[Rfam]
RNA sequence: AAGAAAUGAGGAUAUUUGCUAUGUCUUACUGUUACAUGAAGACAUCAGAUCCAACUCUGAUCUUGCUGCUGCU
Number, nucleotide and partner (000 for none) at each position: 001a064002a063003g062004a061005a000006a000007u000008g000009a000010g000011g000012a000013u000014a000015u000016u000017u000018g000019c000020u000021a000022u000023g000024u000025c000026u000027u000028a000029c000030u000031g000032u000033u000034a000035c000036a000037u000038g000039a000040a000041g000042a000043c000044a000045u000046c000047a000048g000049a000050u000051c000052c000053a000054a000055c000056u000057c000058u000059g000060a000061u004062c003063u002064u001065g000066c000067u000068g000069c000070u000071g000072c000073u000